[Rfam]
RNA sequence: CUCUUAUUCAGAGUGGUGGAGUUACAGGGAACGUUGAAGCCACGGCAACCCGGUCAUUAUGACGAAGGUGCCAGCCUGAGCACAGAUUAUUGUGAGCAAUAAGAG
Numbered sequence: 001c002u003c004u005u006a007u008u009c010a011g012a013g014u015g016g017u018g019g020a021g022u023u024a025c026a027g028g029g030a031a032c033g034u035u036g037a038a039g040c041c042a043c044g045g046c047a048a049c050c051c052g053g054u055c056a057u058u059a060u061g062a063c064g065a066a067g068g069u070g071c072c073a074g075c076c077u078g079a080g081c082a083c084a085g086a087u088u089a090u091u092g093u094g095a096g097c098a099a100u101a102a103g104a105g
Base pairs, nucleotide, nucleotide: 001105002104003103004102005101006100007099008098013043014042015041016040017039021032022031023030029077044072045071046070047069049068050067051064052063054061081094082093083092084091085090
The family of this 105-nucleotide sequence from Eubacterium ruminantium is "SAM riboswitch aptamer (S box leader)".
Lineage of the source: Bacteria > Clostridia > Eubacteriales > Eubacteriaceae > Eubacterium.
Its family is annotated with regulation of gene expression in the Gene Ontology.